[Rfam]
RNA: MIR9563 microRNA precursor family
RNA sequence: GGAAGUUAAGAAAUAGUUUCUUAACUUUUAAAUAAAAAAAUUAAGAACCGGUUCUUAAAUAAGGAUUUUAAGAAUCGGUUCUUAACUUUUUUAGUUAAAAGUUAAGAACCGAUUCUUAACUUCC
Numbered sequence: 001g002g003a004a005g006u007u008a009a010g011a012a013a014u015a016g017u018u019u020c021u022u023a024a025c026u027u028u029u030a031a032a033u034a035a036a037a038a039a040a041u042u043a044a045g046a047a048c049c050g051g052u053u054c055u056u057a058a059a060u061a062a063g064g065a066u067u068u069u070a071a072g073a074a075u076c077g078g079u080u081c082u083u084a085a086c087u088u089u090u091u092u093a094g095u096u097a098a099a100a101g102u103u104a105a106g107a108a109c110c111g112a113u114u115c116u117u118a119a120c121u122u123c124c
Base pairs, nucleotide, nucleotide: 001124002123003122004121005120006119007118008117009116010115011114012113014111018108019107020106021105022104023103024102025101026100027099028098029097030096031095033093034092035091036090037089038088039087041085042084043083044082045081046080047079